The family of this 54-nucleotide RNA from Salmo trutta is "U7 small nuclear RNA". The family has 49 seed sequences and 10,439 matches in Rfam 15.1. Taxonomically the source falls in Salmo (Eukaryota, Teleostomi, Salmoniformes, Salmonidae). Rfam describes the family as follows. Animal histone pre-mRNAs are spliced by a different mechanism than nuclear pre-mRNAs and self-splicing introns. This processing involves the U7 snRNP, which contains only one RNA species: U7. The 5' end of U7 RNA is thought to base-pair to a conserved spacer element downstream of the cleavage site in histone pre-mRNA. This family contains a number of annotated U7 pseudogenes. The base pairs follow the family's consensus structure, which was predicted with PFOLD.
[Rfam]
RNA sequence: AAAUGUUGUCCUUUAAGUAUUUCUCUAGUAGGUUUACUCAAGGAGAAAGCCUCA
Number, nucleotide and partner (000 for none) at each position: 001a000002a000003a000004u000005g000006u000007u000008g000009u000010c000011c000012u000013u000014u000015a000016a000017g000018u000019a000020u000021u000022u000023c000024u000025c000026u000027a000028g000029u000030a000031g051032g050033u049034u048035u047036a000037c045038u044039c043040a000041a000042g000043g039044a038045g037046a000047a035048a034049g033050c032051c031052u000053c000054a000